RNA: Phenylalanine leader peptide
RNA sequence: AGGUCAUCACAGACUUUCUCUCCCUCUUUUUUGUUUUUUUUAAAGCUUUAAUUUAAAAAACAAAAAAGGGGGAGGGAAAGCAAAGUCUCCUCAGUGAGACUUUUUUUUU
Numbered sequence: 001a002g003g004u005c006a007u008c009a010c011a012g013a014c015u016u017u018c019u020c021u022c023c024c025u026c027u028u029u030u031u032u033g034u035u036u037u038u039u040u041u042a043a044a045g046c047u048u049u050a051a052u053u054u055a056a057a058a059a060a061c062a063a064a065a066a067a068g069g070g071g072g073a074g075g076g077a078a079a080g081c082a083a084a085g086u087c088u089c090c091u092c093a094g095u096g097a098g099a100c101u102u103u104u105u106u107u108u109u
Stems, first nucleotide, its partner, number of pairs: 016078004021073014036058004082103008